[Rfam]
RNA sequence: UGUCUCCUCCAUCUCCUCAAAGGAUGGAUUCGGCUCCGGAUCUCACGAUCCGGGGCCGUUUUUU
Numbered sequence: 001u002g003u004c005u006c007c008u009c010c011a012u013c014u015c016c017u018c019a020a021a022g023g024a025u026g027g028a029u030u031c032g033g034c035u036c037c038g039g040a041u042c043u044c045a046c047g048a049u050c051c052g053g054g055g056c057c058g059u060u061u062u063u064u
Base pairs, nucleotide, nucleotide: 008028009027010026011025012024013023032057033056034055036053037052038051039050040049
RNA: Betaproteobacteria toxic small RNA